[Rfam]
RNA sequence: UGACCAAGGGGCCGGGAUGCGUUGAUCGAAUGGAUCGGCGUGACCUAGGAGGUACAGGGAGUACCUCCGCCAAGGGCCGGGUCAGGCAAGCU
Numbered sequence: 001u002g003a004c005c006a007a008g009g010g011g012c013c014g015g016g017a018u019g020c021g022u023u024g025a026u027c028g029a030a031u032g033g034a035u036c037g038g039c040g041u042g043a044c045c046u047a048g049g050a051g052g053u054a055c056a057g058g059g060a061g062u063a064c065c066u067c068c069g070c071c072a073a074g075g076g077c078c079g080g081g082u083c084a085g086g087c088a089a090g091c092u
Base pairs, nucleotide, nucleotide: 001084002083003082004081005080010078011077012076013075014046015045016044018042020040021039022038023037024036025035026034027033049067050066051065052064053063054062055061